About this RNA
Rfam assigns this 48-nucleotide sequence to the family "chrB-b RNA". Rfam classes the family as a cis-regulatory element. The family's consensus secondary structure is taken from published work.

[Rfam]
RNA sequence: ACGGGCCUGCGCGGACGCCCGUUCAGACGGCUCUGCGUCCAAGUCCGC
Numbered sequence: 001a002c003g004g005g006c007c008u009g010c011g012c013g014g015a016c017g018c019c020c021g022u023u024c025a026g027a028c029g030g031c032u033c034u035g036c037g038u039c040c041a042a043g044u045c046c047g048c
Base pairs, nucleotide, nucleotide: 001022002021003020004019005018006017011048012047013046014045015044026039027038028037029036